[Rfam]
RNA sequence: AAAGCAAAGCAGAAGCGCCCGCUUCUCACCUGAUUGACGCUAAAGGCUGUCGGCAGGUCACGGUGAACUCUAACAACCAACAGUGGGCGCAGUGUGUAUGCGCCCACUUUUUUGUGUUUAA
Numbered sequence: 001a002a003a004g005c006a007a008a009g010c011a012g013a014a015g016c017g018c019c020c021g022c023u024u025c026u027c028a029c030c031u032g033a034u035u036g037a038c039g040c041u042a043a044a045g046g047c048u049g050u051c052g053g054c055a056g057g058u059c060a061c062g063g064u065g066a067a068c069u070c071u072a073a074c075a076a077c078c079a080a081c082a083g084u085g086g087g088c089g090c091a092g093u094g095u096g097u098a099u100g101c102g103c104c105c106a107c108u109u110u111u112u113u114g115u116g117u118u119u120a121a
Base pairs, nucleotide, nucleotide: 011026012025013024014023015022016021028058029057030056036051037050038049039047040046082108083107084106085105086104087103088102089101090100091099
Dot-bracket structure: ..........((((((....)))))).(((.....(((((.....)).)))....))).......................((((((((((.......)))))))))).............
This 121-nucleotide sequence from Salibacterium salarium belongs to the Rfam family "Ribosomal protein L20 leader".
A search with the family's covariance model found it, with a score of 67 bits.
The base pairs follow the family's consensus structure, which was predicted with CMfinder.
Rfam describes the family as follows. This family is a putative r-protein leader autoregulatory structure found in B. subtilis and other low-GC Gram-positive bacteria. It is located in the 5' untranslated regions of mRNAs encoding initiation factor 3 followed by ribosomal proteins L35 and L20 (infC-rpmI-rplT). A Rho-independent transcription terminator structure that is probably involved in regulation is included at the 3' end.